Mammalian CPEB3 ribozyme: a 77-nucleotide RNA sequence from Alligator sinensis. Taxonomically the source falls in Alligator (Eukaryota, Deuterostomia, Craniata, Tetrapoda). Gene Ontology term of the family: RNA nuclease activity. About the family: The mammalian CPEB3 ribozyme is a self cleaving RNA located in the second intron of the CPEB3 gene which belongs to a family of genes regulating messenger RNA polyadenylation. This ribozyme is highly conserved and found only in mammals. The CPEB3 ribozyme is structurally and biochemically related to the human hepatitis delta virus (HDV) ribozyme and the HDV ribozyme is proposed to have arisen from the human transcriptome. It scores 38 bits against the family's covariance model.

RNA sequence: AUUGUAAGUUCGAGGCCAUAGCAGAAAUACUCACAGUGAGGCCCUAUCAGAUUUCUAACAAAUCUGUAAAUUCUGGU
Numbered sequence: 001a002u003u004g005u006a007a008g009u010u011c012g013a014g015g016c017c018a019u020a021g022c023a024g025a026a027a028u029a030c031u032c033a034c035a036g037u038g039a040g041g042c043c044c045u046a047u048c049a050g051a052u053u054u055c056u057a058a059c060a061a062a063u064c065u066g067u068a069a070a071u072u073c074u075g076g077u
Stems, first nucleotide, its partner, number of pairs: 012044001014043004020077001022075005028038002048066007